[Rfam]
RNA sequence: GACGCUCUAACGGGGUGCCAUGAAGAUGGCUGAGAGGUUUUCCAUCUGGAAGCCAACCCGCGGAACCUGAUCCGGUUAACACCGGCGGAGGGAUUAGACCGUUCAAAUCG
Numbered sequence: 001g002a003c004g005c006u007c008u009a010a011c012g013g014g015g016u017g018c019c020a021u022g023a024a025g026a027u028g029g030c031u032g033a034g035a036g037g038u039u040u041u042c043c044a045u046c047u048g049g050a051a052g053c054c055a056a057c058c059c060g061c062g063g064a065a066c067c068u069g070a071u072c073c074g075g076u077u078a079a080c081a082c083c084g085g086c087g088g089a090g091g092g093a094u095u096a097g098a099c100c101g102u103u104c105a106a107a108u109c110g
Stems, first nucleotide, its partner, number of pairs: 006098005011060004017030005037053005066091003072085004